[Rfam]
RNA: U5 spliceosomal RNA
RNA sequence: AUCGGCUUUGUGGCUCUCAACUCUACAAUCCCCUCGCCUUUUACUAGGGGAUUCGUGUGAGCCAUGAUCCAGUGCCGUAGAACAAUCUUUGGGCUUUACUAUCUCUUCUGAGAUGAUC
Dot-bracket structure: ..((((..((((((((.((.......((((((((...........))))))))..)).)))))))).......))))...............(....(.((((........)))).))